[Rfam]
RNA sequence: GCCAGCCUUUGGGGCAAGGUGAAAUUCCUGACCGGCGGUAAAGUCCGCGAGCCAUUUUUGGCUGAUCUGGUGAGAUUCCAGAACCGACAGUACAGUCUGGAUGGGAAAAGGCAUGA
Numbered sequence: 001g002c003c004a005g006c007c008u009u010u011g012g013g014g015c016a017a018g019g020u021g022a023a024a025u026u027c028c029u030g031a032c033c034g035g036c037g038g039u040a041a042a043g044u045c046c047g048c049g050a051g052c053c054a055u056u057u058u059u060g061g062c063u064g065a066u067c068u069g070g071u072g073a074g075a076u077u078c079c080a081g082a083a084c085c086g087a088c089a090g091u092a093c094a095g096u097c098u099g100g101a102u103g104g105g106a107a108a109a110g111g112c113a114u115g116a
Base pairs, nucleotide, nucleotide: 005112006111007110008109009108010107017029018028019027031096032095033086034085035048036047037046038045043084044083051062052061053060066082067081068080069079070078088099089098090097

FMN riboswitch aptamer (RFN element): a 116-nucleotide RNA sequence from Anaerosporomusa subterranea. A search with the family's covariance model found it, with a score of 118 bits. The family's consensus secondary structure is taken from published work. NCBI's taxonomy places the organism under Bacteria, Bacillati, Negativicutes, Acetonemataceae, Anaerosporomusa.